[Rfam]
RNA sequence: AAACGGCGUGAAUGAUGAACCAAUUAGAUGUGCGAGUGAGGGGUAAUUUCCUCAUUAUGAGCUUAAAACUGUUUGAGGCAUAUUUAACGUUUCUGACAUUGCCACUU
Numbered sequence: 001a002a003a004c005g006g007c008g009u010g011a012a013u014g015a016u017g018a019a020c021c022a023a024u025u026a027g028a029u030g031u032g033c034g035a036g037u038g039a040g041g042g043g044u045a046a047u048u049u050c051c052u053c054a055u056u057a058u059g060a061g062c063u064u065a066a067a068a069c070u071g072u073u074u075g076a077g078g079c080a081u082a083u084u085u086a087a088c089g090u091u092u093c094u095g096a097c098a099u100u101g102c103c104a105c106u107u
Stems, first nucleotide, its partner, number of pairs: 001107002005103004009098002